[Rfam]
RNA sequence: CACACGCGGGCCGAGGGCGCUCGAUCGGAUCCCCGGGUCCGAUUGUCAAGCGUCCCUACCGGUGUUUCCCGAAGGGGAACCAUGACCGGCUCGCGGCGGUUCAACCGGUGAAACAGGAGAUAC
Number, nucleotide and partner (000 for none) at each position: 001c098002a000003c096004a000005c095006g094007c093008g092009g091010g090011c089012c000013g000014a000015g056016g055017g000018c000019g000020c000021u000022c000023g054024a053025u000026c000027g000028g000029a000030u000031c000032c000033c000034c000035g000036g000037g000038u000039c000040c000041g000042a000043u000044u000045g000046u000047c000048a000049a000050g000051c000052g000053u024054c023055c016056c015057u000058a000059c000060c000061g000062g000063u000064g083065u082066u000067u000068c000069c000070c000071g000072a000073a000074g000075g000076g000077g000078a000079a000080c000081c000082a065083u064084g000085a000086c000087c000088g000089g011090c010091u009092c008093g007094c006095g005096g003097c000098g001099g000100u000101u000102c000103a000104a000105c000106c000107g000108g000109u000110g000111a000112a000113a000114c000115a000116g000117g000118a000119g000120a000121u000122a000123c000
This 123-nucleotide RNA from Siculibacillus lacustris belongs to the Rfam family "rpsB sRNA". NCBI's taxonomy places the organism under Bacteria, Pseudomonadota, Hyphomicrobiales, Ancalomicrobiaceae, Siculibacillus.